[Rfam]
RNA: Small nucleolar RNA SNORD66
Organism: Piaya cayana
RNA sequence: CUGUCUGUGAUGACCAAGCCUUUGAGCCGUUGUGUCUGGGCCACUGAUGUCUGUGAUGGAACUGAGGAUCUGAGCAG
Numbered sequence: 001c002u003g004u005c006u007g008u009g010a011u012g013a014c015c016a017a018g019c020c021u022u023u024g025a026g027c028c029g030u031u032g033u034g035u036c037u038g039g040g041c042c043a044c045u046g047a048u049g050u051c052u053g054u055g056a057u058g059g060a061a062c063u064g065a066g067g068a069u070c071u072g073a074g075c076a077g
Base pairs, nucleotide, nucleotide: 001077002076003075005074